Small nucleolar RNA Z157/R69/R10: a 98-nucleotide sequence from Coffea arabica.
The base pairs follow the family's consensus structure, which was predicted with PFOLD.
It is annotated as a C/D-box small nucleolar RNA.
A reference for the family is Chen et al. (2003), "The high diversity of snoRNAs in plants: identification and comparative study of 120 snoRNA genes from Oryza sativa", Nucleic Acids Res.
[Rfam]
RNA sequence: UUGUGUGCGGUGAUGAGUAUUUUGCUGGACUAGAGUUUCUGAUCCGGGAUUUCAAGCCCUAGUUUUGAAGAGAAACCCUUGGCUGUCUGAGCACAUUA
Numbered sequence: 001u002u003g004u005g006u007g008c009g010g011u012g013a014u015g016a017g018u019a020u021u022u023u024g025c026u027g028g029a030c031u032a033g034a035g036u037u038u039c040u041g042a043u044c045c046g047g048g049a050u051u052u053c054a055a056g057c058c059c060u061a062g063u064u065u066u067g068a069a070g071a072g073a074a075a076c077c078c079u080u081g082g083c084u085g086u087c088u089g090a091g092c093a094c095a096u097u098a
Base pairs, nucleotide, nucleotide: 001098003096004095005094006093007092008091036070037069038068039067044062046060047059048058